Rfam assigns this 62-nucleotide RNA sequence from Aerosakkonema funiforme to the family "Plastid-psbN 5UTR RNA".
It is annotated as a cis-regulatory element.
The organism belongs to Aerosakkonema funiforme, within Bacteria.
Rfam 15.1 lists 2,345 matches to the family in 397 species.
Rfam's curators write: Plastid psbN is a non-coding RNA (ncRNA) recognised in plastids. It was reported as a conserved 11 stem-loop in the prime untranslated region (5UTR) of psbN genes. It has been reported that the motif is retained in a subset of mature transcripts in barley, which can suggests a possible role in transcript alternative 5 prime processing.
Pairs were carried over by alignment from the consensus structure, which was predicted with LocARNA.
[Rfam]
RNA sequence: UGAAAACACCCAUCAGCGGCGUGGUGCCCCAACCGGGAGCAACUUUACCAUAUUCCGAGUUU
Numbered sequence: 001u002g003a004a005a006a007c008a009c010c011c012a013u014c015a016g017c018g019g020c021g022u023g024g025u026g027c028c029c030c031a032a033c034c035g036g037g038a039g040c041a042a043c044u045u046u047a048c049c050a051u052a053u054u055c056c057g058a059g060u061u062u
Stems, first nucleotide, its partner, number of pairs: 018046002021043002024040002027037002